[Rfam]
RNA sequence: GCUGGGACCAGUUGGGACCAGUCGUGGGCAAAAUAAAUAUAUUUUUGUCCACUGCUGCAGUCUUCCUAGAGCAAAGUGGAGGUCUCUGUCUGCUUUAGGACAGCUAACUAAACCGGAUCGUUCCCCUCCAGACACG
Number, nucleotide and partner (000 for none) at each position: 001g000002c000003u000004g066005g065006g064007a000008c000009c060010a000011g058012u057013u000014g000015g000016g000017a000018c000019c000020a000021g000022u000023c000024g052025u051026g050027g049028g048029c047030a000031a000032a000033a000034u000035a043036a042037a000038u000039a000040u000041a000042u036043u035044u000045u000046u000047g029048u028049c027050c026051a025052c024053u000054g000055c000056u000057g012058c011059a000060g009061u000062c000063u000064u006065c005066c004067u000068a000069g000070a000071g000072c000073a000074a000075a000076g000077u000078g129079g128080a127081g126082g125083u000084c000085u000086c120087u000088g118089u117090c116091u000092g114093c000094u112095u111096u110097a109098g108099g000100a000101c000102a000103g000104c000105u000106a000107a000108c098109u097110a096111a095112a094113c000114c092115g000116g090117a089118u088119c000120g086121u000122u000123c000124c000125c082126c081127u080128c079129c078130a000131g000132a000133c000134a000135c000136g000
RNA: Small Cajal body specific RNA 3